[Rfam]
RNA sequence: GCGUCGCCCUGGGGGAGCCUUGCAUAGGCUGAGACGGCUCUGCCGGACCCCUUGAACCUGAACCGGGUAAUGCCGGCGGAGGAAAGCGGCCUCGUUCCCAG
Numbered sequence: 001g002c003g004u005c006g007c008c009c010u011g012g013g014g015g016a017g018c019c020u021u022g023c024a025u026a027g028g029c030u031g032a033g034a035c036g037g038c039u040c041u042g043c044c045g046g047a048c049c050c051c052u053u054g055a056a057c058c059u060g061a062a063c064c065g066g067g068u069a070a071u072g073c074c075g076g077c078g079g080a081g082g083a084a085a086g087c088g089g090c091c092u093c094g095u096u097c098c099c100a101g
Stems, first nucleotide, its partner, number of pairs: 007088001009086002011051004017029004036044003057082003063076004